The record is a 397-nucleotide RNA from Stackebrandtia albiflava, which matches "Bacterial RNase P class A" in Rfam. Gene Ontology terms of the family: ribonuclease P activity, tRNA processing and dimeric ribonuclease P complex. It scores 278 bits against the family's covariance model. By type it is a ribozyme.
RNA sequence: CGAGCCAGCCAGGUGGCCGCGGCGGGGUGUUCUGCACACCGUCGAGGAACGUCCGGACUCCACAGGGCAGGGUGGUUGUUAACGGCAACCCGGGGCGACCCGCGGGAAAGUGCCACAGAGAACAGACCGCCCGCACUGGUUGCGGGUAAGGGUGAAACGGUGGUGUAAGAGACCACCAGCGCCCCCGGUGACGGGGGCGGCUCGGUAAACCCCACCUGGAGCAAGGUCAAGAGGAGCCCUCGGGCUCUGCGCGGACGUGUGAGGGCUGCCCGCCCGAGUCCGCGGGUAGACCGCUGGAGCGGACCGGCGACGGUUCGCCUAGAUGGAUGGCCACCGGCCGGGACAACGCGGUGACGCGUCCCGGUCACAGAAUCCGGCGUACCGGCCGGCUCGUCCG
Number, nucleotide and partner (000 for none) at each position: 001c393002g392003a391004g390005c389006c388007a000008g386009c385010c384011a000012g335013g334014u333015g332016g331017c330018c329019g000020c044021g043022g042023c041024g040025g039026g000027g037028u036029g000030u000031u000032c000033u000034g000035c000036a028037c027038a000039c025040c024041g023042u022043c021044g020045a000046g000047g000048a000049a380050c379051g378052u000053c377054c376055g375056g374057a373058c221059u220060c219061c218062a000063c000064a000065g271066g270067g269068c268069a000070g217071g216072g215073u214074g213075g089076u088077u087078g086079u085080u000081a000082a000083c000084g000085g079086c078087a077088a076089c075090c104091c102092g101093g100094g099095g000096c000097g000098a000099c094100c093101c092102g091103c000104g090105g212106g211107a000108a000109a000110g210111u209112g206113c205114c204115a000116c000117a000118g000119a000120g000121a000122a000123c000124a000125g000126a000127c151128c150129g147130c146131c145132c144133g143134c142135a141136c000137u000138g000139g000140u000141u135142g134143c133144g132145g131146g130147u129148a000149a000150g128151g127152g000153u000154g000155a000156a000157a000158c000159g177160g176161u175162g174163g173164u172165g000166u000167a000168a000169g000170a000171g000172a164173c163174c162175a161176c160177c159178a000179g201180c199181g198182c197183c196184c195185c194186c193187g192188g000189u000190g000191a000192c187193g186194g185195g184196g183197g182198c181199g180200g000201c179202u000203c000204g114205g113206u112207a000208a000209a111210c110211c106212c105213c074214a073215c072216c071217u070218g061219g060220a059221g058222c000223a000224a000225g292226g291227u290228c289229a000230a000231g000232a000233g000234g000235a000236g000237c000238c000239c000240u000241c000242g000243g000244g000245c000246u000247c000248u000249g000250c000251g283252c282253g281254g280255a279256c278257g000258u000259g000260u000261g000262a000263g275264g274265g273266c272267u000268g068269c067270c066271c065272g266273c265274c264275c263276g000277a000278g256279u255280c254281c253282g252283c251284g000285g000286g000287u000288a000289g228290a227291c226292c225293g000294c000295u000296g000297g000298a000299g318300c317301g316302g315303a314304c313305c312306g311307g000308c000309g000310a000311c306312g305313g304314u303315u302316c301317g300318c299319c000320u000321a000322g000323a000324u000325g000326g000327a000328u000329g018330g017331c016332c015333a014334c013335c012336g000337g000338c000339c000340g000341g000342g000343a000344c000345a000346a000347c000348g000349c000350g000351g000352u000353g000354a000355c000356g000357c000358g000359u000360c000361c000362c000363g000364g000365u000366c000367a000368c000369a000370g000371a000372a000373u057374c056375c055376g054377g053378c051379g050380u049381a000382c000383c000384g010385g009386c008387c000388g006389g005390c004391u003392c002393g001394u000395c000396c000397g000